[Rfam]
RNA sequence: AUGGGGUAAAAUAGUGAGCAGCCUUCAUGGGGAAAAUAUAUCAUCAACCCUUGGGCUAAAUUUAAGUUUGAUUUUUUUUAUACCCCAAGAAGAAACUUUUUACCCAUGGUAAAAAGUUUAUGGAGUAAAAAAAAGCAAAUUUAAACUUAUCCCAAGGGUCGAUCACUUUUCCAUGUCGGCUUCUCACUAUUUUACCCCGA
Numbered sequence: 001a002u003g004g005g006g007u008a009a010a011a012u013a014g015u016g017a018g019c020a021g022c023c024u025u026c027a028u029g030g031g032g033a034a035a036a037u038a039u040a041u042c043a044u045c046a047a048c049c050c051u052u053g054g055g056c057u058a059a060a061u062u063u064a065a066g067u068u069u070g071a072u073u074u075u076u077u078u079u080a081u082a083c084c085c086c087a088a089g090a091a092g093a094a095a096c097u098u099u100u101u102a103c104c105c106a107u108g109g110u111a112a113a114a115a116g117u118u119u120a121u122g123g124a125g126u127a128a129a130a131a132a133a134a135g136c137a138a139a140u141u142u143a144a145a146c147u148u149a150u151c152c153c154a155a156g157g158g159u160c161g162a163u164c165a166c167u168u169u170u171c172c173a174u175g176u177c178g179g180c181u182u183c184u185c186a187c188u189a190u191u192u193u194a195c196c197c198c199g200a
Base pairs, nucleotide, nucleotide: 003198004197005196006195007194008193009192010191011190012189013188014187015186016185017184018183020181021180022179023178026175027174028173029172030171031170032169033168034167043163044162045161047159048158049157051155052154053153054152055151057149058148059147062144063143064142065141066140067139068138069137070136072134073133074132075131076130077129078128081127082126083125085123086122087121096116097115098114099113100112101111102110103109104108
Dot-bracket structure: ..((((((((((((((((.((((..(((((((((........(((.(((.(((((.(((..(((((((((.(((((((..(((.(((........(((((((((...)))))))))....))).)))))))))).)))))))))..))).))))).))).)))...)))))))))..)))).))))))))))))))))..

Source information
A member of the RNA family "MIR2670 microRNA precursor family" from Medicago truncatula, 200 nucleotides long.